[Rfam]
RNA: Burkholderia RNA 7 (anti-hemB)
RNA sequence: CCUCCCGCUUUUCCUCCCUGAGCGGGGCCUUGAUGUGUGACAGCUAAUAGGCUUACCACCCCAGCCCACGUGCUGGGGUUUUUUUU
Numbered sequence: 001c002c003u004c005c006c007g008c009u010u011u012u013c014c015u016c017c018c019u020g021a022g023c024g025g026g027g028c029c030u031u032g033a034u035g036u037g038u039g040a041c042a043g044c045u046a047a048u049a050g051g052c053u054u055a056c057c058a059c060c061c062c063a064g065c066c067c068a069c070g071u072g073c074u075g076g077g078g079u080u081u082u083u084u085u086u
Stems, first nucleotide, its partner, number of pairs: 004026006027052004058079008